[Rfam]
RNA sequence: GGAGUCGGCCAGACAGCCGCUGCGGCCGCGUGCCGUGGAGGAAAGUCCGGGCUCCACAGGGCAGGGCGCCAGGUAAUGCCUGGGCGGCGCGAGCCGACGGAAAGUGCCACAGAGAGCAGACCGCCGAUGGCCCGCAAGGGCACAGGUAAGGGUGAAAGGGUGCGGUAAGAGCGCACCGCGCGGGUGGUAACACGCCGCGGCACGGUAAACCCCGCCCGGAGCAAGGCCAAAUAGGGGUGCACAGGUGUGGCCCGCACUGCACCCGGGUAGGCCGCUUGAGGCGCGCGGUGACGCGCGUCCCAGAGGAAUGGCUGUCCACGACAGAACCCGGCUUAUCGGCCGGCUCCAACC
Number, nucleotide and partner (000 for none) at each position: 001g347002g346003a345004g344005u343006c342007g341008g340009c339010c338011a336012g316013a315014c314015a313016g312017c311018c310019g000020c038021u037022g036023c035024g034025g033026c032027c000028g000029c000030g000031u000032g026033c025034c024035g023036u022037g021038g020039a000040g000041g000042a000043a334044a333045g332046u000047c331048c330049g329050g328051g327052c221053u220054c219055c218056a000057c000058a000059g253060g252061g251062c250063a000064g217065g216066g215067c214068g213069c083070c082071a081072g080073g079074u000075a000076a000077u000078g000079c073080c072081u071082g070083g069084g098085c096086g095087g094088c093089g000090c000091g000092a000093g088094c087095c086096g085097a000098c084099g212100g211101a000102a000103a000104g210105u209106g206107c205108c204109a000110c000111a000112g000113a000114g000115a000116g000117c000118a000119g000120a000121c151122c150123g147124c146125c145126g000127a000128u144129g143130g141131c140132c139133c138134g000135c000136a000137a000138g133139g132140g131141c130142a000143c129144a128145g125146g124147u123148a000149a000150g122151g121152g000153u000154g000155a000156a000157a000158g000159g177160g176161u175162g174163c173164g172165g000166u000167a000168a000169g000170a000171g000172c164173g163174c162175a161176c160177c159178g201179c199180g198181c197182g196183g195184g193185u192186g191187g000188u000189a000190a000191c186192a185193c184194g000195c183196c182197g181198c180199g179200g000201c178202a000203c000204g108205g107206u106207a000208a000209a105210c104211c100212c099213c068214g067215c066216c065217c064218g055219g054220a053221g052222c000223a000224a000225g273226g272227c271228c270229a000230a000231a000232u000233a000234g000235g264236g263237g262238u261239g260240c259241a000242c000243a000244g258245g257246u256247g255248u254249g000250g062251c061252c060253c059254g248255c247256a246257c245258u244259g240260c239261a238262c237263c236264c235265g000266g000267g000268u000269a000270g228271g227272c226273c225274g000275c000276u000277u000278g000279a000280g299281g298282c297283g296284c295285g294286c293287g292288g000289u000290g000291a000292c287293g286294c285295g284296c283297g282298u281299c280300c000301c000302a000303g000304a000305g000306g000307a000308a000309u000310g018311g017312c016313u015314g014315u013316c012317c000318a000319c000320g000321a000322c000323a000324g000325a000326a000327c051328c050329c049330g048331g047332c045333u044334u043335a000336u011337c000338g010339g009340c008341c007342g006343g005344c004345u003346c002347c001348a000349a000350c000351c000

Bacterial RNase P class A: a 351-nucleotide sequence from Ectothiorhodospira mobilis. Clan: RNaseP clan. Lineage of the source: Bacteria > Pseudomonadota > Gammaproteobacteria > Chromatiales > Ectothiorhodospira. The base pairs follow the family's consensus structure, which is taken from published work. It scores 316 bits against the family's covariance model.